[Rfam]
Shown here is a 94-nucleotide RNA sequence from Symbiodinium sp. CCMP2592, a member of the family "Small nucleolar RNA snR60/Z15/Z230/Z193/J17". For this family Rfam cites "A computational screen for methylation guide snoRNAs in yeast" (Lowe and Eddy, Science, 1999). The pairing is the family consensus, mapped onto this sequence.
RNA sequence: GUGCUGGCAAAGAAGAUUAUUUCGUUGCAUAGUUCACUCGGAUGCAACGAAUGACGAUGCACUCAACGUCUUUCGCUCCUAUCUGAGCCUGCAG
Numbered sequence: 001g002u003g004c005u006g007g008c009a010a011a012g013a014a015g016a017u018u019a020u021u022u023c024g025u026u027g028c029a030u031a032g033u034u035c036a037c038u039c040g041g042a043u044g045c046a047a048c049g050a051a052u053g054a055c056g057a058u059g060c061a062c063u064c065a066a067c068g069u070c071u072u073u074c075g076c077u078c079c080u081a082u083c084u085g086a087g088c089c090u091g092c093a094g
Stems, first nucleotide, its partner, number of pairs: 004091001006089003